[Rfam]
RNA sequence: UAGCUUGAGGGAUGAACAAGUCCCUCAAAUUCAAUUAUUAUCCAUCCAUCACUUUGCCAGCAUUUUCGUUUAAUAUUUUGCUGGACAUUCGGAGAUGGAAAAUAA
Numbered sequence: 001u002a003g004c005u006u007g008a009g010g011g012a013u014g015a016a017c018a019a020g021u022c023c024c025u026c027a028a029a030u031u032c033a034a035u036u037a038u039u040a041u042c043c044a045u046c047c048a049u050c051a052c053u054u055u056g057c058c059a060g061c062a063u064u065u066u067c068g069u070u071u072a073a074u075a076u077u078u079u080g081c082u083g084g085a086c087a088u089u090c091g092g093a094g095a096u097g098g099a100a101a102a103u104a105a
Base pairs, nucleotide, nucleotide: 041099042098043097044096045095046094057084058083059082060081061080062079
RNA: Small nucleolar RNA snoR99